[Rfam]
RNA sequence: UCCAUGGGGUAAGCGAAUGCCCCACGAGGCGUCAUGCUGGAAUUUCGCGUCCAACAGCAAUCAAGGACGUCGUAUCAUG
Dot-bracket structure: ....((((((........))))))......................((((((............)))))).........